[Rfam]
RNA sequence: ACGCAUUAGGGAUAGCAGCGGCAUCCUUUUUUUUUGCGCUUCGACAAACUCAGCAUGACAAACAAAAAAGAUAAAGCGCAUAGCCCGACCACGC
Number, nucleotide and partner (000 for none) at each position: 001a000002c000003g000004c000005a000006u000007u000008a000009g086010g085011g084012a000013u082014a081015g000016c000017a000018g077019c076020g000021g000022c000023a072024u071025c070026c000027u000028u000029u067030u066031u065032u064033u000034u062035u061036g000037c000038g000039c000040u000041u000042c000043g000044a000045c000046a000047a000048a000049c000050u000051c000052a000053g000054c000055a000056u000057g000058a000059c000060a000061a035062a034063c000064a032065a031066a030067a029068a000069a000070g025071a024072u023073a000074a000075a000076g019077c018078g000079c000080a000081u014082a013083g000084c011085c010086c009087g000088a000089c000090c000091a000092c000093g000094c000
RNA: Flavo-1 RNA
Organism: Flavobacterium haoranii